[Rfam]
RNA sequence: AUUUUAUCAAGAGAGACAGAGGGAUAUGGCCCGACGAAGUCUCAGCAGCGGACUCUUUAUAGAGCACUGUGCUAAUUCCAUCAAGCUUUAGCUUGGCAGAUAAAUG
Numbered sequence: 001a002u003u004u005u006a007u008c009a010a011g012a013g014a015g016a017c018a019g020a021g022g023g024a025u026a027u028g029g030c031c032c033g034a035c036g037a038a039g040u041c042u043c044a045g046c047a048g049c050g051g052a053c054u055c056u057u058u059a060u061a062g063a064g065c066a067c068u069g070u071g072c073u074a075a076u077u078c079c080a081u082c083a084a085g086c087u088u089u090a091g092c093u094u095g096g097c098a099g100a101u102a103a104a105u106g
Stems, first nucleotide, its partner, number of pairs: 003104006013043005021032003026081004044073004049069002051065001054062001077098001082095005
Overview:
A member of the RNA family "SAM riboswitch aptamer (S box leader)" from Macrococcoides caseolyticum, 106 nucleotides long. The match comes from Rfam's covariance-model search (79 bits). Lineage of the source: Bacteria > Bacillati > Bacilli > Macrococcoides > Macrococcoides caseolyticum.